[Rfam]
RNA sequence: UGGAAGUGAUGAAAUAGAGAUAAUCGGAUGUCUUUCAGUGGAGAGUGUGUGUGAUAAAUGGAAUUUAAUCCAAGUCAGCCUGGGGUUGGGGUGUGGGGAAUGUGUGUGUGCUUGCAUGUAUAGAAAAGGCUUUAAAUGGGGGCACUGAUAUUGCUGUGCUGAUUCCGGAGUGCAUCUGAGGCAUGUUGUUAAAGCUUUGGGGUGCCAAUUCACAACAUUGCCGAUGAUUAAAGCCCAAAACAAGCCCACCAGGACAAGCCUAGGCAUCCUAAGUCUCUAACAGGUUCAUUAAUGAAAGUGAUCCUGUGAUCUGAUCUGA
Numbered sequence: 001u002g003g004a005a006g007u008g009a010u011g012a013a014a015u016a017g018a019g020a021u022a023a024u025c026g027g028a029u030g031u032c033u034u035u036c037a038g039u040g041g042a043g044a045g046u047g048u049g050u051g052u053g054a055u056a057a058a059u060g061g062a063a064u065u066u067a068a069u070c071c072a073a074g075u076c077a078g079c080c081u082g083g084g085g086u087u088g089g090g091g092u093g094u095g096g097g098g099a100a101u102g103u104g105u106g107u108g109u110g111c112u113u114g115c116a117u118g119u120a121u122a123g124a125a126a127a128g129g130c131u132u133u134a135a136a137u138g139g140g141g142g143c144a145c146u147g148a149u150a151u152u153g154c155u156g157u158g159c160u161g162a163u164u165c166c167g168g169a170g171u172g173c174a175u176c177u178g179a180g181g182c183a184u185g186u187u188g189u190u191a192a193a194g195c196u197u198u199g200g201g202g203u204g205c206c207a208a209u210u211c212a213c214a215a216c217a218u219u220g221c222c223g224a225u226g227a228u229u230a231a232a233g234c235c236c237a238a239a240a241c242a243a244g245c246c247c248a249c250c251a252g253g254a255c256a257a258g259c260c261u262a263g264g265c266a267u268c269c270u271a272a273g274u275c276u277c278u279a280a281c282a283g284g285u286u287c288a289u290u291a292a293u294g295a296a297a298g299u300g301a302u303c304c305u306g307u308g309a310u311c312u313g314a315u316c317u318g319a
Stems, first nucleotide, its partner, number of pairs: 001318004184217006191210001194205002
RNA: Small Cajal body-specific RNA 7